Record summary
Small nucleolar RNA Z43: a 102-nucleotide RNA sequence from Gossypium australe. Rfam classes the family as a C/D-box small nucleolar RNA. Pairs were carried over by alignment from the consensus structure, which was predicted with PFOLD. It scores 90 bits against the family's covariance model. On this family, see Chen et al., Nucleic Acids Res 2003: "The high diversity of snoRNAs in plants: identification and comparative study of 120 snoRNA genes from Oryza sativa". The organism belongs to Gossypium, within Eukaryota.
RNA sequence: GGACGGUGACGAUUUCUACAGAUAGGUCUCGUUCGUCGUAAAUGGCUGUUUUAAUGGCCUUUGCCGACCAUCCUGCUAUAUCACCACCCAUAUUCCGAGUCC
Numbered sequence: 001g002g003a004c005g006g007u008g009a010c011g012a013u014u015u016c017u018a019c020a021g022a023u024a025g026g027u028c029u030c031g032u033u034c035g036u037c038g039u040a041a042a043u044g045g046c047u048g049u050u051u052u053a054a055u056g057g058c059c060u061u062u063g064c065c066g067a068c069c070a071u072c073c074u075g076c077u078a079u080a081u082c083a084c085c086a087c088c089c090a091u092a093u094u095c096c097g098a099g100u101c102c
Stems, first nucleotide, its partner, number of pairs: 001102004048061001049057001